[Rfam]
Rfam assigns this 50-nucleotide RNA sequence from Thiomonas delicata to the family "Guanidine-II riboswitch aptamer (mini-ykkC)".
Simpler in structure and has fewer highly conserved nucleotide positions than the ykkC-yxkD leader. Despite this each of its two stem-loop structures directly bind free guanidine.
Rfam 15.1 lists 1,589 matches to the family in 1,229 species.
RNA sequence: CCGCCGGGACGGCCUGGACGGGACAACCCAGAUCCUGCGGGACGACCCGC
Numbered sequence: 001c002c003g004c005c006g007g008g009a010c011g012g013c014c015u016g017g018a019c020g021g022g023a024c025a026a027c028c029c030a031g032a033u034c035c036u037g038c039g040g041g042a043c044g045a046c047c048c049g050c
Stems, first nucleotide, its partner, number of pairs: 001021003005016004037050005
Rfam links the family to the GO term regulation of gene expression.